A member of the RNA family "SAM riboswitch aptamer (S box leader)" from Anaerosporomusa subterranea, 101 nucleotides long. Taxonomically the source falls in Anaerosporomusa (Bacteria, Bacillati, Negativicutes, Acetonemataceae). It scores 90 bits against the family's covariance model. The family's consensus secondary structure is taken from published work.
RNA sequence: CUCUUAUCAAGAGUGGUCGAGGGACUGGCCCGAUGACACCCGGCAACCGGCAGAAAUGCAGAGGUGCUAAAUCCAGCAGGAGAAAUCCUGGAAGAUGAGAG
Numbered sequence: 001c002u003c004u005u006a007u008c009a010a011g012a013g014u015g016g017u018c019g020a021g022g023g024a025c026u027g028g029c030c031c032g033a034u035g036a037c038a039c040c041c042g043g044c045a046a047c048c049g050g051c052a053g054a055a056a057u058g059c060a061g062a063g064g065u066g067c068u069a070a071a072u073c074c075a076g077c078a079g080g081a082g083a084a085a086u087c088c089u090g091g092a093a094g095a096u097g098a099g100a101g
Stems, first nucleotide, its partner, number of pairs: 001101008013041001015040003021031003025076004042068004047064002050059003072093001077090005